The family of this 116-nucleotide RNA sequence from Glycine max is "MIR1520 microRNA precursor family". The match comes from Rfam's covariance-model search (71 bits). Its Rfam clan is "MIR1520 microRNA precursor clan".
RNA sequence: UCGUUAAUAAGUGAUGUUGUCUAUCAUCUUCUGAUUGGUCAAUGAAAACAAAAAUUCAUUUCAUCUUUCAUUGAAUUAACAUCCCAUCAAAACAUGACAUGUAACAGUUAUCAUCC
Numbered sequence: 001u002c003g004u005u006a007a008u009a010a011g012u013g014a015u016g017u018u019g020u021c022u023a024u025c026a027u028c029u030u031c032u033g034a035u036u037g038g039u040c041a042a043u044g045a046a047a048a049c050a051a052a053a054a055u056u057c058a059u060u061u062c063a064u065c066u067u068u069c070a071u072u073g074a075a076u077u078a079a080c081a082u083c084c085c086a087u088c089a090a091a092a093c094a095u096g097a098c099a100u101g102u103a104a105c106a107g108u109u110a111u112c113a114u115c116c
Stems, first nucleotide, its partner, number of pairs: 016105004022099001025096003029092002032089001034087002